[Rfam]
RNA sequence: UAAUUCGUCUGAUAGAACUUUUUUUAUAAUCAAAAAACCACAUGAAAUUGCACAAAAUCGCACUUUUGCGGUGUUUUUCGAUAAUGAAAAAAGUUCUAUCAGACGAAUC
Numbered sequence: 001u002a003a004u005u006c007g008u009c010u011g012a013u014a015g016a017a018c019u020u021u022u023u024u025u026a027u028a029a030u031c032a033a034a035a036a037a038c039c040a041c042a043u044g045a046a047a048u049u050g051c052a053c054a055a056a057a058u059c060g061c062a063c064u065u066u067u068g069c070g071g072u073g074u075u076u077u078u079c080g081a082u083a084a085u086g087a088a089a090a091a092a093g094u095u096c097u098a099u100c101a102g103a104c105g106a107a108u109c
Stems, first nucleotide, its partner, number of pairs: 004107006012099001014097002018093002023089003027084001029082003

This 109-nucleotide sequence from Caenorhabditis briggsae belongs to the Rfam family "MIR480 microRNA precursor family". Taxonomically the source falls in Caenorhabditis (Eukaryota, Opisthokonta, Rhabditina, Peloderinae). The match comes from Rfam's covariance-model search (36 bits). The family has 69 seed sequences and 3,070 matches in Rfam 15.1.